[Rfam]
RNA: Small nucleolar RNA SNORA30/SNORA37 family
RNA sequence: CUGGCACUUUAACAGGUCCUCCCCUAGGCAGUGGGGCAGGAUUUGGUAGCUGGUGCUGAGAGAAAACCCUUGAUUGGAUCCUUGCCCCUGGUACUGUACCAGAGGCAGCUGUCACUCAGUGGAACAGAG
Numbered sequence: 001c002u003g004g005c006a007c008u009u010u011a012a013c014a015g016g017u018c019c020u021c022c023c024c025u026a027g028g029c030a031g032u033g034g035g036g037c038a039g040g041a042u043u044u045g046g047u048a049g050c051u052g053g054u055g056c057u058g059a060g061a062g063a064a065a066a067c068c069c070u071u072g073a074u075u076g077g078a079u080c081c082u083u084g085c086c087c088c089u090g091g092u093a094c095u096g097u098a099c100c101a102g103a104g105g106c107a108g109c110u111g112u113c114a115c116u117c118a119g120u121g122g123a124a125c126a127g128a129g
Stems, first nucleotide, its partner, number of pairs: 003057006013045003017041004022036004068122002070119004075114002078112002082108005088102004